[Rfam]
RNA: Group II catalytic intron D1-D4-3
RNA sequence: GGCGAGGUGACAGACCGUGGGGAGGAAGCCCGAGCCAAAGCUGCGAGGUGACGAACAGAAACGUCAUGAAGGCGGCGAGCUUUCUGAGGCGAGUGGCCCCAGGACCACGAAGCCGUUUCCGACAGGACUCGUCGUAGUUGACGCACUUGUGCAGCGAAAGUUCACGUC
Numbered sequence: 001g002g003c004g005a006g007g008u009g010a011c012a013g014a015c016c017g018u019g020g021g022g023a024g025g026a027a028g029c030c031c032g033a034g035c036c037a038a039a040g041c042u043g044c045g046a047g048g049u050g051a052c053g054a055a056c057a058g059a060a061a062c063g064u065c066a067u068g069a070a071g072g073c074g075g076c077g078a079g080c081u082u083u084c085u086g087a088g089g090c091g092a093g094u095g096g097c098c099c100c101a102g103g104a105c106c107a108c109g110a111a112g113c114c115g116u117u118u119c120c121g122a123c124a125g126g127a128c129u130c131g132u133c134g135u136a137g138u139u140g141a142c143g144c145a146c147u148u149g150u151g152c153a154g155c156g157a158a159a160g161u162u163c164a165c166g167u168c
Stems, first nucleotide, its partner, number of pairs: 001016002006011001028168001030166001036160001040155006046148005062143005072135003076131004081126002088114003093108004
Dot-bracket structure: ((...(....)...))...........(.(.....(...(((((((((((...........(((((.....(((.((((.((.....(((..((((........))))...)))..........)).)))).)))...)))))))))).))))))....).....).)